[Rfam]
RNA: glmS glucosamine-6-phosphate activated ribozyme aptamer
RNA sequence: CACUAAAUAAGAGCGCUGGUACUUGCUGCGGCAAGUAGACGAGGAAGAGGUUUAUCGAGUAGUCAGCGGAUGCCUCUCGGCUGCUGUGGUCGUUAUAAUGCCGACAAAUCCGUAAGGUGACUUACGGCGCAAAACGGUUAAAACAGUGAA
Numbered sequence: 001c002a003c004u005a006a007a008u009a010a011g012a013g014c015g016c017u018g019g020u021a022c023u024u025g026c027u028g029c030g031g032c033a034a035g036u037a038g039a040c041g042a043g044g045a046a047g048a049g050g051u052u053u054a055u056c057g058a059g060u061a062g063u064c065a066g067c068g069g070a071u072g073c074c075u076c077u078c079g080g081c082u083g084c085u086g087u088g089g090u091c092g093u094u095a096u097a098a099u100g101c102c103g104a105c106a107a108a109u110c111c112g113u114a115a116g117g118u119g120a121c122u123u124a125c126g127g128c129g130c131a132a133a134a135c136g137g138u139u140a141a142a143a144c145a146g147u148g149a150a
Stems, first nucleotide, its partner, number of pairs: 020037007046077005055066001057064002078092005096140003101137002110127007